[Rfam]
RNA sequence: GUGAGGGCGACCGAGCGUGGGGAGGAAGCGCGGAGCGUAAAUCGUGAGCCGAUGAACAAGAACCGCAUAGAAGGCGCUGCCGAGCAGGGCAAGCGGGCCAAUAACCGCGAAGCUCUUGUGACCAAGGCGAGGCGGCGUAGAUGCGGCGGUUGUGCGGUGAAGGAGUGCGUUC
Number, nucleotide and partner (000 for none) at each position: 001g016002u015003g000004a000005g012006g011007g000008c000009g000010a000011c006012c005013g000014a000015g002016c001017g000018u000019g000020g000021g000022g000023a000024g000025g000026a000027a000028g172029c000030g170031c169032g168033g000034a000035g000036c163037g000038u000039a000040a000041a158042u157043c156044g155045u154046g153047a151048g150049c149050c148051g147052a000053u000054g000055a000056a000057c000058a000059a000060g000061a000062a000063c146064c145065g144066c143067a142068u141069a000070g000071a000072a000073g000074g138075c137076g136077c000078u134079g133080c132081c131082g000083a000084g128085c000086a000087g115088g114089g113090c112091a000092a000093g108094c107095g106096g105097g000098c000099c000100a000101a000102u000103a000104a000105c096106c095107g094108c093109g000110a000111a000112g090113c089114u088115c087116u000117u000118g000119u000120g000121a000122c000123c000124a000125a000126g000127g000128c084129g000130a000131g081132g080133c079134g078135g000136c076137g075138u074139a000140g000141a068142u067143g066144c065145g064146g063147c051148g050149g049150u048151u047152g000153u046154g045155c044156g043157g042158u041159g000160a000161a000162g000163g036164a000165g000166u000167g000168c032169g031170u030171u000172c028